[Rfam]
RNA sequence: GUGGCAGCUUGGUUGUCACAUGUAUGAUGCCACUUUCGACAAUCUUUCAGAAUGACAUCAUAUAUAUGGCAGCUAAACUGCUAC
Numbered sequence: 001g002u003g004g005c006a007g008c009u010u011g012g013u014u015g016u017c018a019c020a021u022g023u024a025u026g027a028u029g030c031c032a033c034u035u036u037c038g039a040c041a042a043u044c045u046u047u048c049a050g051a052a053u054g055a056c057a058u059c060a061u062a063u064a065u066a067u068g069g070c071a072g073c074u075a076a077a078c079u080g081c082u083a084c
Base pairs, nucleotide, nucleotide: 002083003082004081005080006079007078015070016069017068018067020065021064022063024061025060026059027058029056031054032053037050
The record is an 84-nucleotide sequence from Neotoma lepida, which matches "mir-489 microRNA precursor family" in Rfam. NCBI's taxonomy places the organism under Eukaryota, Gnathostomata, Tetrapoda, Amniota, Neotoma. The literature on the family includes a 2005 paper in Nat Genet by Bentwich et al., "Identification of hundreds of conserved and nonconserved human microRNAs".